[Rfam]
RNA: chrB-a RNA
RNA sequence: GGCCUGGGGGCACAGCGAUCCCCCCAUGAGGCGACAUGCCAAAGUAUCGCGUCCCGUUUUCACGAGGGCGCACGCAUG
Numbered sequence: 001g002g003c004c005u006g007g008g009g010g011c012a013c014a015g016c017g018a019u020c021c022c023c024c025c026a027u028g029a030g031g032c033g034a035c036a037u038g039c040c041a042a043a044g045u046a047u048c049g050c051g052u053c054c055c056g057u058u059u060u061c062a063c064g065a066g067g068g069c070g071c072a073c074g075c076a077u078g
Stems, first nucleotide, its partner, number of pairs: 005026006049071006